[Rfam]
Nucleotides: 122
Stems, first nucleotide, its partner, number of pairs: 002118006013104007037094003044060005051085001061074001063072003077091004
Number, partner (000 for none) and nucleotide at each position: 001000g002118c003117a004116g005115c006114g007113a008000a009000u010000g011000c012000u013104g014103a015102c016101g017100g018099a019098a020000c021000u022000a023000c024000a025000g026000a027000c028000u029000a030000u031000u032000a033000a034000u035000c036000u037094c038093g039092u040000g041000g042000u043000c044060g045059c046058g047057g048056g049000u050000u051085c052000g053000a054000u055000u056048c057047c058046c059045g060044c061074c062000u063072g064071c065070c066000g067000a068000a069000g070065g071064g072063c073000u074061g075000u076000a077091g078090c079089u080088c081000a082000g083000u084000g085051g086000u087000a088080g089079a090078g091077c092039a093038c094037g095000a096000c097000g098019u099018u100017u101016c102015g103014u104013c105000g106000a107000u108000u109000c110000u111000u112000g113007u114006c115005g116004c117003u118002g119000u120000u121000u122000u
This 122-nucleotide RNA sequence from Paracidovorax valerianellae belongs to the Rfam family "Y RNA-like". The literature on the family includes a 2013 paper in Cell by Chen et al., "An RNA degradation machine sculpted by Ro autoantigen and noncoding RNA". In Deinococcus radiodurans Rsr is tethered via Y RNA to the exoribonuclease PNPase and channels single-stranded RNA into the PNPase cavity. Rsr and Y RNA enhance degradation of structured RNAs by PNPase. This role could be conserved, as Rsr and ncRNAs called YrlA and YrlB (Y RNA like) also associate with PNPase in an evolutionary distant bacterium Salmonella Typhimurium. A search with the family's covariance model found it, with a score of 73 bits. The organism belongs to Paracidovorax, within Bacteria.